[Rfam]
RNA sequence: AUAAAUUGCAAUUAGGUGAGGUUACUUUAAGAACAUAGGUUGUUGCCCAGAAAUGUCGAGAGACAGGAAUGAGUAAAGCAGAAACUGCCGAAUUAAGGCUUUUUCAAAACAACUAGACUAGUUCUUACGUCUUAAAGUGCUAAAACUCAAUGAAUGCGUCGAUA
Numbered sequence: 001a002u003a004a005a006u007u008g009c010a011a012u013u014a015g016g017u018g019a020g021g022u023u024a025c026u027u028u029a030a031g032a033a034c035a036u037a038g039g040u041u042g043u044u045g046c047c048c049a050g051a052a053a054u055g056u057c058g059a060g061a062g063a064c065a066g067g068a069a070u071g072a073g074u075a076a077a078g079c080a081g082a083a084a085c086u087g088c089c090g091a092a093u094u095a096a097g098g099c100u101u102u103u104u105c106a107a108a109a110c111a112a113c114u115a116g117a118c119u120a121g122u123u124c125u126u127a128c129g130u131c132u133u134a135a136a137g138u139g140c141u142a143a144a145a146c147u148c149a150a151u152g153a154a155u156g157c158g159u160c161g162a163u164a
Stems, first nucleotide, its partner, number of pairs: 007158004011151002013096001015147003020141003025137008039113005045074002048071002054065004081105004087099003115125003

Rfam assigns this 164-nucleotide RNA from Levilactobacillus brevis to the family "M-box riboswitch aptamer (ykoK leader)". For this family Rfam cites "Insights into metalloregulation by M-box riboswitch RNAs via structural analysis of manganese-bound complexes" (Ramesh et al., J Mol Biol, 2011). M-box riboswitch, also know as ykoK leader is described as a metaloregulatory RNA that sense divalent metals and function as a genetic control element of genes related to divalent metal transport in bacteria. It is one of the family's seed sequences. The base pairs follow the family's consensus structure. Taxonomically the source falls in Levilactobacillus brevis (Bacteria, Bacillati, Bacillota, Bacilli). Gene Ontology terms of the family: regulation of gene expression and response to magnesium ion.